[Rfam]
RNA sequence: UGACAGGGCAGCUAGGGUUCCGGCUUCUUCGCGAAGCGUCUGGUCCGAGAGCCGCCCGGCCUCCCCUGGAGGCUCCACGGAGGGAUAAAAGCCCGGGAGAA
Numbered sequence: 001u002g003a004c005a006g007g008g009c010a011g012c013u014a015g016g017g018u019u020c021c022g023g024c025u026u027c028u029u030c031g032c033g034a035a036g037c038g039u040c041u042g043g044u045c046c047g048a049g050a051g052c053c054g055c056c057c058g059g060c061c062u063c064c065c066c067u068g069g070a071g072g073c074u075c076c077a078c079g080g081a082g083g084g085a086u087a088a089a090a091g092c093c094c095g096g097g098a099g100a101a
Stems, first nucleotide, its partner, number of pairs: 007056003011052002015046002020043002022040001023037005058074007076096001078099001082094003
Shown here is a 101-nucleotide RNA from Thiomonas delicata, a member of the family "Guanidine-I riboswitch aptamer".
Lineage of the source: Bacteria > Pseudomonadati > Betaproteobacteria > Burkholderiales > Thiomonas.
Pairs were carried over by alignment from the consensus structure.
From the family's description: This family represents a conserved RNA structure found upstream of the ykkC and yxkD genes in Bacillus subtilis and related genes in other bacteria.